[Rfam]
RNA sequence: UUUUAGGGAAUGAAGCCUAAAGUCGCUACAUCGUGUGGAAACGGCUUCAUGACCAACAUACUGCUGG
Numbered sequence: 001u002u003u004u005a006g007g008g009a010a011u012g013a014a015g016c017c018u019a020a021a022g023u024c025g026c027u028a029c030a031u032c033g034u035g036u037g038g039a040a041a042c043g044g045c046u047u048c049a050u051g052a053c054c055a056a057c058a059u060a061c062u063g064c065u066g067g
Base pairs, nucleotide, nucleotide: 011049012048013047014046015045016044017043026038027037028036029035053067054066055065057063